[Rfam]
RNA sequence: UUGCGCUGUCCUUCAUUCCACCGGAUCCUGUUUCCCAGUCUGCAGAUUCCCAGUGGGAUGAAGAUCAGUGGGGC
Number, nucleotide and partner (000 for none) at each position: 001u000002u000003g000004c000005g000006c000007u000008g000009u000010c000011c063012u062013u061014c060015a059016u058017u000018c000019c055020a054021c053022c000023g050024g049025a048026u000027c000028c045029u044030g043031u000032u000033u000034c000035c000036c000037a000038g000039u000040c000041u000042g000043c030044a029045g028046a000047u000048u025049c024050c023051c000052a000053g021054u020055g019056g000057g000058a016059u015060g014061a013062a012063g011064a000065u000066c000067a000068g000069u000070g000071g000072g000073g000074c000
The record is a 74-nucleotide RNA from Coregonus sp. 'balchen', which matches "mir-205 microRNA precursor family" in Rfam. The literature on the family includes a 2003 paper in Science by Lim et al., "Vertebrate microRNA genes". Rfam links the family to the GO terms miRNA-mediated post-transcriptional gene silencing and RISC complex. A search with the family's covariance model found it, with a score of 56 bits. Rfam 15.1 lists 1,154 matches to the family in 646 species.